[Rfam]
RNA sequence: CACCGCCUACCAAGCCACCCAAGUGAGGUCUUAGUGAGGCAGCGCCACUGGCGUUUUCGAACUAAGGUUUCGCGAGGUGGGCUAAGGUAUAACAAGGUAUCCGUAGGGGAACCUGCGGAUAGAUCACCUCAA
Numbered sequence: 001c002a003c004c005g006c007c008u009a010c011c012a013a014g015c016c017a018c019c020c021a022a023g024u025g026a027g028g029u030c031u032u033a034g035u036g037a038g039g040c041a042g043c044g045c046c047a048c049u050g051g052c053g054u055u056u057u058c059g060a061a062c063u064a065a066g067g068u069u070u071c072g073c074g075a076g077g078u079g080g081g082c083u084a085a086g087g088u089a090u091a092a093c094a095a096g097g098u099a100u101c102c103g104u105a106g107g108g109g110a111a112c113c114u115g116c117g118g119a120u121a122g123a124u125c126a127c128c129u130c131a132a
Base pairs, nucleotide, nucleotide: 003096005093008089009088011086013083014082015081016080019077020076023073024072025071026070027069028068029067030066031065032064033063034062035061038058039057041055042054043053044052045051046050098121099120100119101118102117103116104115105114106113107112

Notes: Rfam assigns this 132-nucleotide part of an RNA from Candidatus Micrarchaeum sp. AZ1 to the family "Archaeal small subunit ribosomal RNA". For this family Rfam cites "Crystal structure of the ribosome at 5.5 A resolution" (Yusupov et al., Science, 2001). Taxonomically the source falls in Candidatus Micrarchaeum (Archaea, Microcaldota, Candidatus Micrarchaeia, Candidatus Micrarchaeales). A search with the family's covariance model found it, with a score of 1334 bits.